RNA sequence: AGCAAAUGAUGUGAACGAAUAUUUGCUAUCUGACUUCUGGUGCUGACAAGCAUAUCCACCAAGAUCGCUGAUGCU
Numbered sequence: 001a002g003c004a005a006a007u008g009a010u011g012u013g014a015a016c017g018a019a020u021a022u023u024u025g026c027u028a029u030c031u032g033a034c035u036u037c038u039g040g041u042g043c044u045g046a047c048a049a050g051c052a053u054a055u056c057c058a059c060c061a062a063g064a065u066c067g068c069u070g071a072u073g074c075u
Base pairs, nucleotide, nucleotide: 001075002074003073004072
Shown here is a 75-nucleotide RNA sequence from Salvator merianae, a member of the family "Small nucleolar RNA SNORD24". Its family is annotated with nucleolus and RNA processing in the Gene Ontology. NCBI's taxonomy places the organism under Eukaryota, Eumetazoa, Vertebrata, Teleostomi, Salvator. It is annotated as a C/D-box small nucleolar RNA. The base pairs follow the family's consensus structure, which was predicted with PFOLD.